[Rfam]
RNA sequence: GUGUUGCUGCGCGGUGCGUCAGGAGUCUUUUCCCCGGGGCCUUAUUGAUCCUGAAGGGAGCUGUCCCUGGUUGAACCCGUGGGUUCUUUCAAACGGCGCCCACCUACGAUGUAGGUACCCGGGAUCGCAUUCUCCAACGGCCGUGCGGCUUCACC
Numbered sequence: 001g002u003g004u005u006g007c008u009g010c011g012c013g014g015u016g017c018g019u020c021a022g023g024a025g026u027c028u029u030u031u032c033c034c035c036g037g038g039g040c041c042u043u044a045u046u047g048a049u050c051c052u053g054a055a056g057g058g059a060g061c062u063g064u065c066c067c068u069g070g071u072u073g074a075a076c077c078c079g080u081g082g083g084u085u086c087u088u089u090c091a092a093a094c095g096g097c098g099c100c101c102a103c104c105u106a107c108g109a110u111g112u113a114g115g116u117a118c119c120c121g122g123g124a125u126c127g128c129a130u131u132c133u134c135c136a137a138c139g140g141c142c143g144u145g146c147g148g149c150u151u152c153a154c155c
Stems, first nucleotide, its partner, number of pairs: 002153002006149010017139003031124004036119002039116003056101003060097005069090002073086005